[Rfam]
RNA: tRNA
RNA sequence: GGGGCGUUAGCUCAGUUGGUUAGAGCAGAGGACUCAUAAUCCUUUGGUCAUAGGUUCAAGUCCUAUACGCCCUA
Dot-bracket structure: (((((((..((((.........)))).(((((.......))))).....(((((.......)))))))))))).